S15-Halobacteria ribosomal protein leader: a 67-nucleotide RNA from Halocalculus aciditolerans. Lineage of the source: Archaea > Methanobacteriati > Methanobacteriota > Halobacteriaceae > Halocalculus.

RNA sequence: GUAGGGAACGCACGGCCGUAGUUCCGACAUCGCCGCCCGCUUGGGCGGCUUGGGAAUGCGGUAGUGC
Numbered sequence: 001g002u003a004g005g006g007a008a009c010g011c012a013c014g015g016c017c018g019u020a021g022u023u024c025c026g027a028c029a030u031c032g033c034c035g036c037c038c039g040c041u042u043g044g045g046c047g048g049c050u051u052g053g054g055a056a057u058g059c060g061g062u063a064g065u066g067c
Stems, first nucleotide, its partner, number of pairs: 010067004015062006024054002032049007